[Rfam]
RNA sequence: UAUUGAGGUAGAGGUUGCGUGUUUUAAGAGUAAUUUUUUGGAUGUGACAGGCACAGGAGAAGGAAAAUGAAAGGGAAAUACGCCGAAAGGAUCUGCAUCCUAUGUGUGCAGGUACUUGGGCAUACAGUUAAGAGCUGUGUGACUGUCAUCAGAAAUGAUGGGGCGCUAUCCGAUGA
Number, nucleotide and partner (000 for none) at each position: 001u000002a000003u000004u000005g000006a000007g170008g169009u168010a167011g166012a000013g000014g000015u000016u000017g083018c082019g081020u080021g079022u078023u077024u076025u075026a000027a000028g000029a000030g000031u000032a000033a068034u067035u066036u065037u064038u063039u062040g000041g000042a000043u000044g000045u000046g000047a000048c000049a000050g000051g000052c000053a000054c000055a000056g000057g000058a000059g000060a000061a000062g039063g038064a037065a036066a035067a034068u033069g000070a000071a000072a000073g000074g000075g025076a024077a023078a022079u021080a020081c019082g018083c017084c000085g000086a000087a117088a116089g115090g000091a113092u112093c111094u110095g109096c108097a107098u106099c000100c000101u000102a000103u000104g000105u000106g098107u097108g096109c095110a094111g093112g092113u091114a000115c089116u088117u087118g144119g143120g000121c141122a140123u139124a138125c137126a136127g135128u134129u000130a000131a000132g000133a000134g128135c127136u126137g125138u124139g123140u122141g121142a000143c119144u118145g000146u161147c160148a159149u158150c157151a156152g000153a000154a000155a000156u151157g150158a149159u148160g147161g146162g000163g000164c000165g000166c011167u010168a009169u008170c007171c000172g000173a000174u000175g000176a000